Rfam assigns this 105-nucleotide RNA sequence from Porphyromonas asaccharolytica to the family "SAM-I/IV (S-adenosyl methionine) riboswitch aptamer".
The family has 417 seed sequences and 567 matches in Rfam 15.1.
On this family, see Weinberg et al., RNA 2008: "The aptamer core of SAM-IV riboswitches mimics the ligand-binding site of SAM-I riboswitches".
A search with the family's covariance model found it, with a score of 54 bits.
RNA sequence: AGUUAGCAUUAAGAGCCGGUCUACGGACCGCCCCAACCGAGCCUUGCAUAAUGGUCACGGUGGGAAGAAUGGAUGCGAAUUAGACGUUUAACCUAUAAACCAACU
Numbered sequence: 001a002g003u004u005a006g007c008a009u010u011a012a013g014a015g016c017c018g019g020u021c022u023a024c025g026g027a028c029c030g031c032c033c034c035a036a037c038c039g040a041g042c043c044u045u046g047c048a049u050a051a052u053g054g055u056c057a058c059g060g061u062g063g064g065a066a067g068a069a070u071g072g073a074u075g076c077g078a079a080u081u082a083g084a085c086g087u088u089u090a091a092c093c094u095a096u097a098a099a100c101c102a103a104c105u
Stems, first nucleotide, its partner, number of pairs: 006076005015031001017030005032064003037060003041055002049098001078089002081086001